[Rfam]
RNA sequence: GGUCACGAGUGACAGCUAACAAGGCCCCUGCUCCUCUGUCCGGCAACCCUCCUCACGUGGUGGGCUCCCCGGCUGACGACCACGUCGUACGACAGCACGGUCUGCGGCAAGCACGGAUC
Numbered sequence: 001g002g003u004c005a006c007g008a009g010u011g012a013c014a015g016c017u018a019a020c021a022a023g024g025c026c027c028c029u030g031c032u033c034c035u036c037u038g039u040c041c042g043g044c045a046a047c048c049c050u051c052c053u054c055a056c057g058u059g060g061u062g063g064g065c066u067c068c069c070c071g072g073c074u075g076a077c078g079a080c081c082a083c084g085u086c087g088u089a090c091g092a093c094a095g096c097a098c099g100g101u102c103u104g105c106g107g108c109a110a111g112c113a114c115g116g117a118u119c
Stems, first nucleotide, its partner, number of pairs: 001081004009041001011040005023032002042068002047064003051060002084108006091102003
Rfam assigns this 119-nucleotide RNA sequence from Streptomyces daliensis to the family "SAM (S-adenosyl methionine) riboswitch aptamer".
The literature on the family includes a 2008 paper in RNA by Weinberg et al., "The aptamer core of SAM-IV riboswitches mimics the ligand-binding site of SAM-I riboswitches".
The match comes from Rfam's covariance-model search (63 bits).
Rfam describes the family as follows. SAM-IV is a mRNA element that regulates gene expression via direct sensing of S-adenosylmethionine (SAM or AdoMet). SAM-IV riboswitches share conserved nucleotide positions with the previously described SAM-I riboswitches sequence analysis and molecular recognition experiments suggest that SAM-I and SAM-IV riboswitches share similar ligand binding sites, but have different scaffolds.
Lineage of the source: Bacteria > Actinomycetota > Actinomycetes > Kitasatosporales > Streptomyces.